[Rfam]
RNA sequence: UUUAUGGUUUUCUAGGGUUCCGCAGCAUUCGCCUGGUCUGGUCCGAGAGAAAACGCACAUCUCAUAUGUGUACACGGAGGGACAAAAGCCUGGGAGAA
Numbered sequence: 001u002u003u004a005u006g007g008u009u010u011u012c013u014a015g016g017g018u019u020c021c022g023c024a025g026c027a028u029u030c031g032c033c034u035g036g037u038c039u040g041g042u043c044c045g046a047g048a049g050a051a052a053a054c055g056c057a058c059a060u061c062u063c064a065u066a067u068g069u070g071u072a073c074a075c076g077g078a079g080g081g082a083c084a085a086a087a088g089c090c091u092g093g094g095a096g097a098a
Stems, first nucleotide, its partner, number of pairs: 007054006015044002020041002022038001023035003055071006073093001075096001079091003
The record is a 98-nucleotide RNA from Aquibacillus koreensis, which matches "Guanidine-I riboswitch aptamer" in Rfam. Rfam describes the family as follows. This family represents a conserved RNA structure found upstream of the ykkC and yxkD genes in Bacillus subtilis and related genes in other bacteria. A search with the family's covariance model found it, with a score of 84 bits.